About this RNA
The family of this 84-nucleotide RNA from Podarcis lilfordi is "Small nucleolar RNA SNORD127". Pairs were carried over by alignment from the consensus structure, which was predicted with WAR. The organism belongs to Podarcis, within Eukaryota. A search with the family's covariance model found it, with a score of 66 bits. Rfam 15.1 lists 541 matches to the family in 527 species.

RNA sequence: UGGCAACAGUGAUGACGACUCUUGACUCUGCAAUGCGUGUUGCUGCAACUUGGAGACACCAGUCCCUCUAAACUGAUGUUGCCA
Numbered sequence: 001u002g003g004c005a006a007c008a009g010u011g012a013u014g015a016c017g018a019c020u021c022u023u024g025a026c027u028c029u030g031c032a033a034u035g036c037g038u039g040u041u042g043c044u045g046c047a048a049c050u051u052g053g054a055g056a057c058a059c060c061a062g063u064c065c066c067u068c069u070a071a072a073c074u075g076a077u078g079u080u081g082c083c084a
Stems, first nucleotide, its partner, number of pairs: 001084007